[Rfam]
RNA sequence: AACAGCAUAUACCUCCGAGCCAGUGGGCCUAAGGUUUUCGGCUAUGGCUGCUGGCCUCCUGCCUGUUGCUCGGGCAGCGACGGGGUAGGCGGGGAAACCUGCCUGCCUCCCGGAAUGGGAAAGGAGUUUUCUACCUGGCAGAA
Numbered sequence: 001a002a003c004a005g006c007a008u009a010u011a012c013c014u015c016c017g018a019g020c021c022a023g024u025g026g027g028c029c030u031a032a033g034g035u036u037u038u039c040g041g042c043u044a045u046g047g048c049u050g051c052u053g054g055c056c057u058c059c060u061g062c063c064u065g066u067u068g069c070u071c072g073g074g075c076a077g078c079g080a081c082g083g084g085g086u087a088g089g090c091g092g093g094g095a096a097a098c099c100u101g102c103c104u105g106c107c108u109c110c111c112g113g114a115a116u117g118g119g120a121a122a123g124g125a126g127u128u129u130u131c132u133a134c135c136u137g138g139c140a141g142a143a
Stems, first nucleotide, its partner, number of pairs: 003137002011128001013126004019055007027048003033043004059077007083108011109119002